[Rfam]
RNA: Archaeal signal recognition particle RNA
Organism: Halogranum gelatinilyticum
RNA sequence: GAGUGGACUAGGUCGGGCAGUUAGGCCCUGCUCAUUUCCCGCGAUAGAGUCUUUAGCGGGGACCGAACGCCGAGGGCGUCCGGUCAGACCGGCGUGGACCUCGGGAGCCAACGUAGAAACCUCGUCCUUCGGGGACAGCGGCUCGGCGAAACACGUCCGCAGGGACGUCGACUCGCCGUUGAUCGGUGGCACUGGGUCAGGCGCGGAAGCGAGCAGCCCACCGCCGGACGUGCGUCGCUCGCAGGAUCGCGGGGUGGAGGAGGCAACCGAGAUUACCCGCGUUCGGAACACCGGGCAAUCUCGGCCCGUCCCCAU
Numbered sequence: 001g002a003g004u005g006g007a008c009u010a011g012g013u014c015g016g017g018c019a020g021u022u023a024g025g026c027c028c029u030g031c032u033c034a035u036u037u038c039c040c041g042c043g044a045u046a047g048a049g050u051c052u053u054u055a056g057c058g059g060g061g062a063c064c065g066a067a068c069g070c071c072g073a074g075g076g077c078g079u080c081c082g083g084u085c086a087g088a089c090c091g092g093c094g095u096g097g098a099c100c101u102c103g104g105g106a107g108c109c110a111a112c113g114u115a116g117a118a119a120c121c122u123c124g125u126c127c128u129u130c131g132g133g134g135a136c137a138g139c140g141g142c143u144c145g146g147c148g149a150a151a152c153a154c155g156u157c158c159g160c161a162g163g164g165a166c167g168u169c170g171a172c173u174c175g176c177c178g179u180u181g182a183u184c185g186g187u188g189g190c191a192c193u194g195g196g197u198c199a200g201g202c203g204c205g206g207a208a209g210c211g212a213g214c215a216g217c218c219c220a221c222c223g224c225c226g227g228a229c230g231u232g233c234g235u236c237g238c239u240c241g242c243a244g245g246a247u248c249g250c251g252g253g254g255u256g257g258a259g260g261a262g263g264c265a266a267c268c269g270a271g272a273u274u275a276c277c278c279g280c281g282u283u284c285g286g287a288a289c290a291c292c293g294g295g296c297a298a299u300c301u302c303g304g305c306c307c308g309u310c311c312c313c314a315u
Base pairs, nucleotide, nucleotide: 001315003313005311006310007309008308011064012063013062014061015033016032017031018030019029020028038060039059040058041057042056069305070304071303072302073301074300075299078296079295080294081293082291089285091283092282093281094280095279096278097277100271101270102269103268104267107264108263109262112259114257119255120254121253122252123251124250125249126245127244128243130241131240132239133238134236135235136234138231139230140229141180144178145177146176147175148174149173152170153168154167155166156165157164158163183227184226185225186224187223188222189221193220194219195218196217197216202211203210204209